c-di-GMP-I riboswitch aptamer: an 84-nucleotide sequence from Aquibacillus salsiterrae. The match comes from Rfam's covariance-model search (72 bits).
[Rfam]
RNA sequence: GCACGAUAAAGGCAAACCCAUUGAAAAGUGGUGACGCAAAGCUAUAGGGGCUAACGCAAAGUGCAAUGCUAGCCAGCUUCCAAA
Numbered sequence: 001g002c003a004c005g006a007u008a009a010a011g012g013c014a015a016a017c018c019c020a021u022u023g024a025a026a027a028g029u030g031g032u033g034a035c036g037c038a039a040a041g042c043u044a045u046a047g048g049g050g051c052u053a054a055c056g057c058a059a060a061g062u063g064c065a066a067u068g069c070u071a072g073c074c075a076g077c078u079u080c081c082a083a084a
Stems, first nucleotide, its partner, number of pairs: 012037002018031005040078004047074002049070003056064003